[Rfam]
RNA: MIR1520 microRNA precursor family
RNA sequence: UUAUUUGUCAACGUUGACCGUCACAUGUUGUGCAUUUAUUGGAUGUUAAUUUUGUGCACCUAAUUAAAGUCAACCUCCAAUAAAAUCGCAACAUGUGAUAGUCAAUAUCC
Numbered sequence: 001u002u003a004u005u006u007g008u009c010a011a012c013g014u015u016g017a018c019c020g021u022c023a024c025a026u027g028u029u030g031u032g033c034a035u036u037u038a039u040u041g042g043a044u045g046u047u048a049a050u051u052u053u054g055u056g057c058a059c060c061u062a063a064u065u066a067a068a069g070u071c072a073a074c075c076u077c078c079a080a081u082a083a084a085a086u087c088g089c090a091a092c093a094u095g096u097g098a099u100a101g102u103c104a105a106u107a108u109c110c
Base pairs, nucleotide, nucleotide: 020099021098022097023096025094026093029090030089031088035084036083038081039080040079
Dot-bracket structure: ...................((((.((..(((...((.(((......................................))).))...)))..)).))))...........